[Rfam]
A member of the RNA family "mraW RNA" from Yinghuangia soli, 118 nucleotides long.
The match comes from Rfam's covariance-model search (56 bits).
Lineage of the source: Bacteria > Bacillati > Actinomycetota > Streptomycetaceae > Yinghuangia.
By type it is a cis-regulatory element.

RNA sequence: UGACGGACGUGCCGUGAGGUCUCCACCCGCUCCGAGCUUUCUGGCACUCCUUCCCCGGUGCCAGACGGUCACUUCCCCAGACGAGCGGGCGGGGACCUGGCGGCACGUACGUCCCGGA
Numbered sequence: 001u002g003a004c005g006g007a008c009g010u011g012c013c014g015u016g017a018g019g020u021c022u023c024c025a026c027c028c029g030c031u032c033c034g035a036g037c038u039u040u041c042u043g044g045c046a047c048u049c050c051u052u053c054c055c056c057g058g059u060g061c062c063a064g065a066c067g068g069u070c071a072c073u074u075c076c077c078c079a080g081a082c083g084a085g086c087g088g089g090c091g092g093g094g095a096c097c098u099g100g101c102g103g104c105a106c107g108u109a110c111g112u113c114c115c116g117g118a
Stems, first nucleotide, its partner, number of pairs: 010105006018097002021094004026089007036069003040065008